[Rfam]
RNA sequence: UGGCAUGCAUGUAGACCUUGCCUGGCACUCUGUGGUCAGGUGAGGGGGACAGUGUGUGCCAGAGUGCUGUGGAGCUCCUGCCCCUCUGCUCUGCCCGCUGCAUCAUGGCUGGGUGGGUGGCAGUGCUCCCACAUCC
Number, nucleotide and partner (000 for none) at each position: 001u000002g000003g059004c058005a057006u056007g055008c054009a000010u000011g000012u000013a000014g000015a000016c045017c044018u043019u042020g041021c040022c039023u038024g037025g000026c000027a000028c000029u000030c000031u000032g000033u000034g000035g000036u000037c024038a023039g022040g021041u020042g019043a018044g017045g016046g000047g000048g000049a000050c000051a000052g000053u000054g008055u007056g006057u005058g004059c003060c000061a000062g000063a000064g000065u000066g000067c000068u000069g000070u000071g129072g128073a127074g126075c000076u125077c000078c000079u122080g121081c120082c000083c000084c000085u000086c000087u000088g000089c000090u000091c000092u000093g000094c112095c111096c000097g109098c108099u000100g000101c000102a000103u000104c000105a000106u000107g000108g098109c097110u000111g095112g094113g000114u000115g000116g000117g000118u000119g000120g081121c080122a079123g000124u000125g076126c074127u073128c072129c071130c000131a000132c000133a000134u000135c000136c000
RNA: Small nucleolar RNA SNORA58